[Rfam]
This 63-nucleotide RNA from Sesamum indicum belongs to the Rfam family "Small nucleolar RNA U49". The literature on the family includes a 2001 paper in RNA by Brown et al., "Multiple snoRNA gene clusters from Arabidopsis". The family's RNA type in Rfam is C/D-box small nucleolar RNA. The family is grouped with related families in Rfam's "SNORD49 clan". NCBI's taxonomy places the organism under Eukaryota, Streptophyta, Tracheophyta, Spermatophyta, Sesamum.

RNA sequence: UGCCGAUGAGGAAGAAUUCCCAAGUAUAGGAAGUGCCGUAUGACACUAAAACGCAGCAUUUGU
Numbered sequence: 001u002g003c004c005g006a007u008g009a010g011g012a013a014g015a016a017u018u019c020c021c022a023a024g025u026a027u028a029g030g031a032a033g034u035g036c037c038g039u040a041u042g043a044c045a046c047u048a049a050a051a052c053g054c055a056g057c058a059u060u061u062g063u
Stems, first nucleotide, its partner, number of pairs: 014060002032047004